[Rfam]
RNA sequence: UGUCUCCUCCACCUCCUCCAUUGGUGGAUUGGCCCGAAGCCUCACGGCUUCGGGCUUUUUUC
Numbered sequence: 001u002g003u004c005u006c007c008u009c010c011a012c013c014u015c016c017u018c019c020a021u022u023g024g025u026g027g028a029u030u031g032g033c034c035c036g037a038a039g040c041c042u043c044a045c046g047g048c049u050u051c052g053g054g055c056u057u058u059u060u061u062c
Stems, first nucleotide, its partner, number of pairs: 008028006032055008
Source information
The family of this 62-nucleotide RNA sequence from Ideonella aquatica is "Betaproteobacteria toxic small RNA". On this family, see Kimelman et al., Genome Res 2012: "A vast collection of microbial genes that are toxic to bacteria". From the family's description: Overexpression in amino aid rich medium attenuates growth, suggesting role in repressing amino acid intake and metabolism.